mir-16 microRNA precursor family: an 81-nucleotide RNA sequence from Danionella cerebrum. The family's consensus secondary structure was predicted with PFOLD. Its family is annotated with miRNA-mediated post-transcriptional gene silencing and RISC complex in the Gene Ontology. Rfam 15.1 lists 4,705 matches to the family in 758 species. Clan: mir-15 clan. The match comes from Rfam's covariance-model search (43 bits). The literature on the family includes a 2002 paper in Proc Natl Acad Sci U S A by Calin et al., "Frequent deletions and down-regulation of micro- RNA genes miR15 and miR16 at 13q14 in chronic lymphocytic leukemia".
RNA sequence: UUCUUGCUCCAGCAGCACGGGCAAUAUUGGAGGCAUUGGCCAAGAAGUAACUCCAAUAUUUACAUGCUGCUAAAGCAAGAC
Numbered sequence: 001u002u003c004u005u006g007c008u009c010c011a012g013c014a015g016c017a018c019g020g021g022c023a024a025u026a027u028u029g030g031a032g033g034c035a036u037u038g039g040c041c042a043a044g045a046a047g048u049a050a051c052u053c054c055a056a057u058a059u060u061u062a063c064a065u066g067c068u069g070c071u072a073a074a075g076c077a078a079g080a081c
Stems, first nucleotide, its partner, number of pairs: 002080002005077003011071007021061001023060008
Dot-bracket structure: .((.(((...(((((((...(.((((((((......................)))))))))...)))))))...))).)).